[Rfam]
RNA sequence: UUCUUAUGCCGGUUAGUGAAUGGUUCGGUUUGAGAGCUGAUGAAGGGCGUGCCAAGCAGCGAAAUGCCCCGGGAAGACGCAAGGAGUCUGUGAUCCGGGGAUCCCCUAAUAGGACCUCCCCACGAUUUAUCGUGAAUCCGUAAGGAUGGGGAACCCCCCGAAGUGAAACAUCUCAGUAGGGGGAGGAAGAGAAAUCAAUUGAGAUUACGUUAGUAGAGGCGAUCGAACCCGUAAUAGUCUAAACUGAAUCCCGCAAGGGACAUGUAGUGUAUGGCCUUCGUUGUAGUAUGUGUUUAUCUAAUGAAAGUAGCUUGGAAUGGCUUACCUUAGAGGGUGACAGUCCCGUACGUGGUGGUAAACACAGCUUAGAAGUGUCCUGAGUAGCGCGGGUUGGAAUUCCCACGUGAAUAUGGGGGUCACCUAACCUCCAAGACUAAAUACUCCUCAAAACCGAUAGCGAAAUAGUAGCGUGAGCGAAAACUGAAAAGUAUCCCUGAAAAGGAAAUGAAAAGUGCCUGAAACUAACCGGUGAUCGUGU
Numbered sequence: 001u002u003c004u005u006a007u008g009c010c011g012g013u014u015a016g017u018g019a020a021u022g023g024u025u026c027g028g029u030u031u032g033a034g035a036g037c038u039g040a041u042g043a044a045g046g047g048c049g050u051g052c053c054a055a056g057c058a059g060c061g062a063a064a065u066g067c068c069c070c071g072g073g074a075a076g077a078c079g080c081a082a083g084g085a086g087u088c089u090g091u092g093a094u095c096c097g098g099g100g101a102u103c104c105c106c107u108a109a110u111a112g113g114a115c116c117u118c119c120c121c122a123c124g125a126u127u128u129a130u131c132g133u134g135a136a137u138c139c140g141u142a143a144g145g146a147u148g149g150g151g152a153a154c155c156c157c158c159c160g161a162a163g164u165g166a167a168a169c170a171u172c173u174c175a176g177u178a179g180g181g182g183g184a185g186g187a188a189g190a191g192a193a194a195u196c197a198a199u200u201g202a203g204a205u206u207a208c209g210u211u212a213g214u215a216g217a218g219g220c221g222a223u224c225g226a227a228c229c230c231g232u233a234a235u236a237g238u239c240u241a242a243a244c245u246g247a248a249u250c251c252c253g254c255a256a257g258g259g260a261c262a263u264g265u266a267g268u269g270u271a272u273g274g275c276c277u278u279c280g281u282u283g284u285a286g287u288a289u290g291u292g293u294u295u296a297u298c299u300a301a302u303g304a305a306a307g308u309a310g311c312u313u314g315g316a317a318u319g320g321c322u323u324a325c326c327u328u329a330g331a332g333g334g335u336g337a338c339a340g341u342c343c344c345g346u347a348c349g350u351g352g353u354g355g356u357a358a359a360c361a362c363a364g365c366u367u368a369g370a371a372g373u374g375u376c377c378u379g380a381g382u383a384g385c386g387c388g389g390g391u392u393g394g395a396a397u398u399c400c401c402a403c404g405u406g407a408a409u410a411u412g413g414g415g416g417u418c419a420c421c422u423a424a425c426c427u428c429c430a431a432g433a434c435u436a437a438a439u440a441c442u443c444c445u446c447a448a449a450a451c452c453g454a455u456a457g458c459g460a461a462a463u464a465g466u467a468g469c470g471u472g473a474g475c476g477a478a479a480a481c482u483g484a485a486a487a488g489u490a491u492c493c494c495u496g497a498a499a500a501g502g503a504a505a506u507g508a509a510a511a512g513u514g515c516c517u518g519a520a521a522c523u524a525a526c527c528g529g530u531g532a533u534c535g536u537g538u
Stems, first nucleotide, its partner, number of pairs: 007531010022516001023481002027452002029449006035442002044107004048061003067100006076088003112119002136147004154185001155183005165172002195202002206233004216224002236435004244267003249260004276372004285366003301350003307323001309322004326330001332344003384405003388401003412429005468475002
Dot-bracket structure: ......((((((((((.....(((..((((((((((.......(((((((........))).....((((((...(((.......)))......))))))...))))....((....))................((((....))))......((((((.....((....))......))))).).........((....))...((((......((.....)).....))))..((((....(((..((((....))))....)))........((((.....(((.............(((...(.((((......)))))..(...).(((.......)))...))).............)))..))))...........(((.(((........))).)))......(((((........)))))..)))).....)).)))))).))...............((....))....))..................................).....)))))))))).......
The record is a 538-nucleotide part of an RNA from Methanocorpusculum labreanum, which matches "Archaeal large subunit ribosomal RNA" in Rfam. The family's consensus secondary structure is taken from published work. The organism belongs to Methanocorpusculum labreanum, within Archaea.